[Rfam]
RNA sequence: UGGCGCCCAACGUGGUGCUGGAUACUGGGGACAACGUGAGGGACACAACGGAGUAAAGAAGGGGUACGCACCCGAUCAAACAAUAGUUCGGAGACGUCGCGGUAGCCUGCUGUGACCGAGCCGACAGGUAAGUUGGUCGUGCAAUUUAAAUCAUGGGGCAAGCAUUGAGUCAGCAUCAGAAAUAUGUGAUACAGUUAAGAGAAGUGUUACAGGCAAGAGGAGUAAAGGUUACAACUGAAGAUUUAUUUCAUUUUUUUGAUUUUGUGAAAGACAUCUGCCCAU
Numbered sequence: 001u002g003g004c005g006c007c008c009a010a011c012g013u014g015g016u017g018c019u020g021g022a023u024a025c026u027g028g029g030g031a032c033a034a035c036g037u038g039a040g041g042g043a044c045a046c047a048a049c050g051g052a053g054u055a056a057a058g059a060a061g062g063g064g065u066a067c068g069c070a071c072c073c074g075a076u077c078a079a080a081c082a083a084u085a086g087u088u089c090g091g092a093g094a095c096g097u098c099g100c101g102g103u104a105g106c107c108u109g110c111u112g113u114g115a116c117c118g119a120g121c122c123g124a125c126a127g128g129u130a131a132g133u134u135g136g137u138c139g140u141g142c143a144a145u146u147u148a149a150a151u152c153a154u155g156g157g158g159c160a161a162g163c164a165u166u167g168a169g170u171c172a173g174c175a176u177c178a179g180a181a182a183u184a185u186g187u188g189a190u191a192c193a194g195u196u197a198a199g200a201g202a203a204g205u206g207u208u209a210c211a212g213g214c215a216a217g218a219g220g221a222g223u224a225a226a227g228g229u230u231a232c233a234a235c236u237g238a239a240g241a242u243u244u245a246u247u248u249c250a251u252u253u254u255u256u257u258g259a260u261u262u263u264g265u266g267a268a269a270g271a272c273a274u275c276u277g278c279c280c281a282u
Stems, first nucleotide, its partner, number of pairs: 006030003012025003036046002085129001087127001095118002098114005140160003145157004166209003169205002217257006226244005267282001270279001272277001
The family of this 282-nucleotide RNA from Nannospalax galili is "Mason-Pfizer monkey virus packaging signal". On this family, see Mustafa et al., Virus Res 2004: "Mutational analysis of the predicted secondary RNA structure of the Mason-Pfizer monkey virus packaging signal". Rfam describes the family as follows. This family represents a group of sequences that are related to the Mason-Pfizer monkey virus (MPMV) packaging signal. The packaging signal is located in the 5' UTR and is required for specific RNA encapsidation. Lineage of the source: Eukaryota > Vertebrata > Gnathostomata > Teleostomi > Nannospalax. The base pairs follow the family's consensus structure, which was predicted with PFOLD.